RNA sequence: UUUGCAUUAAUGAAGACUACACAGAAAACCUUUUCUAAGGAUUUGUGUGGAUCCGAUAUUUGGCAAA
Numbered sequence: 001u002u003u004g005c006a007u008u009a010a011u012g013a014a015g016a017c018u019a020c021a022c023a024g025a026a027a028a029c030c031u032u033u034u035c036u037a038a039g040g041a042u043u044u045g046u047g048u049g050g051a052u053c054c055g056a057u058a059u060u061u062g063g064c065a066a067a
Stems, first nucleotide, its partner, number of pairs: 001067005015053002017050008030039003

Selenocysteine insertion sequence 1: a 67-nucleotide RNA from Propithecus coquereli. Pairs were carried over by alignment from the consensus structure, which is taken from published work. It scores 45 bits against the family's covariance model. The source organism's lineage runs through Eukaryota, Eumetazoa, Bilateria, Chordata and Propithecus. The family's RNA type in Rfam is cis-regulatory element. For this family Rfam cites "A novel RNA structural motif in the selenocysteine insertion element of eukaryotic selenoprotein mRNAs" (Walczak et al., RNA, 1996). From the family's description: The incorporation of selenocysteine into a protein sequence is directed by an in-frame UGA codon (usually a stop codon) within the coding region of the mRNA. Selenoprotein mRNAs contain a conserved secondary structure in the 3' UTR that is required for the distinction of UGA stop from UGA selenocysteine. The selenocysteine insertion sequence (SECIS) is around 60 nt in length and adopts a hairpin structure which is sufficiently well-defined and conserved to act as a computational screen for selenoprotein genes.